The record is a 262-nucleotide RNA, which matches "BsrG" in Rfam. Rfam describes the family as follows. bsrE, bsrG and bsrH pair through intermolecular interactions with antisense sRNAs. They form type I toxin/antitoxin system that includes an mRNA encoding for a short, toxic peptide (bsrE, bsrG and bsrH) and an antitoxin that is comprised of an antisense RNA. bsrG encodes a 39-amino-acid toxin, and the 180 nucleotide antisense sRNA called SR4 acts as the antitoxin (they overlap by 123 nucleotides). SR4 interaction with the 3'UTR of bsrG RNA promotes bsrG degradation and inhibits its translation. Pairs were carried over by alignment from the consensus structure, which was predicted with WAR. Gene Ontology terms of the family: autolysis and toxin activity. Rfam 15.1 lists 614 matches to the family in 343 species. It scores 161 bits against the family's covariance model. Rfam classes the family as a small RNA.
RNA sequence: UACAAUUGAACGGCUUGCUCAAGGGUGUCUGGCUCAUCCCCGAUAGGAAGGGGGUGAUGCUCAUGUCAACGUUCCAAGCGAUUUCCCUAAUGCUUUUAUUCGGGAUGUUUAUCCUUGCUUUGUUGACGUAUAUAAACAAAAAAUAGACUCCCCUUGAGCUUUGGUAGGUGAAAGGGAAAGUCUAUCCUUAAAACUAUCUAAUUGAUAAGCCAGCCCCUUGAAGGGCCUCAUUGUACAUUGCCGGGAUGUUAGCGCAUCCUGG
Numbered sequence: 001u002a003c004a005a006u007u008g009a010a011c012g013g014c015u016u017g018c019u020c021a022a023g024g025g026u027g028u029c030u031g032g033c034u035c036a037u038c039c040c041c042g043a044u045a046g047g048a049a050g051g052g053g054g055u056g057a058u059g060c061u062c063a064u065g066u067c068a069a070c071g072u073u074c075c076a077a078g079c080g081a082u083u084u085c086c087c088u089a090a091u092g093c094u095u096u097u098a099u100u101c102g103g104g105a106u107g108u109u110u111a112u113c114c115u116u117g118c119u120u121u122g123u124u125g126a127c128g129u130a131u132a133u134a135a136a137c138a139a140a141a142a143a144u145a146g147a148c149u150c151c152c153c154u155u156g157a158g159c160u161u162u163g164g165u166a167g168g169u170g171a172a173a174g175g176g177a178a179a180g181u182c183u184a185u186c187c188u189u190a191a192a193a194c195u196a197u198c199u200a201a202u203u204g205a206u207a208a209g210c211c212a213g214c215c216c217c218u219u220g221a222a223g224g225g226c227c228u229c230a231u232u233g234u235a236c237a238u239u240g241c242c243g244g245g246a247u248g249u250u251a252g253c254g255c256a257u258c259c260u261g262g
Stems, first nucleotide, its partner, number of pairs: 001235005008229002012211005018158008027148004034057003038054004065127007078093003102119002105116001168189001170187001213226004241262009